[Rfam]
Nucleotides: 080
Base pairs, nucleotide, nucleotide: 003054007050008049009048010047011046012045015042016041017068018067019066020065021064027038028037029036030035059073060072061071
Number, partner (000 for none) and nucleotide at each position: 001000u002000c003054c004000u005000g006000g007050c008049c009048g010047c011046g012045u013000g014000a015042c016041u017068g018067g019066c020065g021064c022000a023000c024000a025000g026000g027038a028037u029036g030035g031000a032000g033000a034000a035030c036029c037028a038027u039000c040000g041016g042015g043000g044000a045012g046011c047010g048009c049008g050007g051000g052000g053000u054003g055000c056000a057000g058000a059073g060072c061071c062000g063000c064021g065020c066019g067018c068017c069000u070000g071061g072060g073059u074000g075000a076000c077000u078000c079000a080000u
A member of the RNA family "ZMP/ZTP riboswitch aptamer (pfl RNA motif)", 80 nucleotides long. The match comes from Rfam's covariance-model search (53 bits).